The record is an 85-nucleotide RNA sequence from Aliikangiella coralliicola, which matches "c-di-GMP-I riboswitch aptamer" in Rfam. Rfam links the family to the GO term cyclic-di-GMP binding.
[Rfam]
Nucleotides: 085
Stems, first nucleotide, its partner, number of pairs: 012039002017034001020031004042079004047075003050070003057064002
Number, partner (000 for none) and nucleotide at each position: 001000u002000g003000u004000u005000g006000a007000a008000a009000a010000a011000g012039g013038c014000a015000a016000g017034c018000u019000u020031g021030a022029a023028c024000g025000a026000a027000a028023g029022u030021u031020c032000u033000u034017g035000u036000a037000c038013g039012c040000a041000a042079a043078a044077c045076c046000a047075c048074c049073g050070g051069u052068c053000u054000a055000a056000g057064g058063g059000g060000a061000a062000c063058c064057c065000u066000a067000u068052g069051g070050c071000g072000g073049c074048g075047g076045g077044g078043u079042u080000a081000c082000c083000g084000a085000g